[Rfam]
RNA: Histone 3' UTR stem-loop
Nucleotides: 046
Stems, first nucleotide, its partner, number of pairs: 006021006
Number, partner (000 for none) and nucleotide at each position: 001000u002000c003000a004000a005000a006021g007020g008019c009018u010017c011016u012000u013000u014000u015000a016011a017010g018009a019008g020007c021006c022000a023000c024000g025000u026000a027000u028000g029000u030000u031000u032000c033000c034000u035000g036000a037000a038000a039000a040000g041000a042000g043000c044000u045000g046000u